[Rfam]
Notes: A member of the RNA family "THF (Tetrahydrofolate) riboswitch aptamer" from Oribacterium sinus, 102 nucleotides long. Its family is annotated with tetrahydrofolate metabolic process in the Gene Ontology. The organism belongs to Oribacterium sinus, within Bacteria. The sequence is in the family's curated seed alignment.
RNA sequence: UGCAGAGUAGAGAAUAAAGUGGUUAGUGCCCGACACACAGGGAGUUGGUGUCGAGACGAAGAGCCGAAUCGGUUCCCAGUUUUAUUUUCGCAUCCCGCUGCC
Numbered sequence: 001u002g003c004a005g006a007g008u009a010g011a012g013a014a015u016a017a018a019g020u021g022g023u024u025a026g027u028g029c030c031c032g033a034c035a036c037a038c039a040g041g042g043a044g045u046u047g048g049u050g051u052c053g054a055g056a057c058g059a060a061g062a063g064c065c066g067a068a069u070c071g072g073u074u075c076c077c078a079g080u081u082u083u084a085u086u087u088u089c090g091c092a093u094c095c096c097g098c099u100g101c102c
Base pairs, nucleotide, nucleotide: 002101003100004099005098010089011088012087013086014085015084016083017082018081019080020078021077022076026057027056029055031053032052033051034050035049036048040095041094042093044091061075062074063073064072